A member of the RNA family "L31-Actinobacteria ribosomal protein leader" from Streptomyces palmae, 45 nucleotides long. For this family Rfam cites "Discovery of 20 novel ribosomal leader candidates in bacteria and archaea" (Eckert and Weinberg, BMC Microbiol, 2020). Taxonomically the source falls in Streptomyces (Bacteria, Actinomycetota, Actinomycetes, Kitasatosporales). Rfam classes the family as a cis-regulatory leader. Pairs were carried over by alignment from the consensus structure, which is taken from published work.

[Rfam]
RNA sequence: UCGGCCCCGGUUCACGUCGGGCAAUCCGCCCGCCGACCCGGAGCC
Numbered sequence: 001u002c003g004g005c006c007c008c009g010g011u012u013c014a015c016g017u018c019g020g021g022c023a024a025u026c027c028g029c030c031c032g033c034c035g036a037c038c039c040g041g042a043g044c045c
Stems, first nucleotide, its partner, number of pairs: 003045003007041004015035002018032005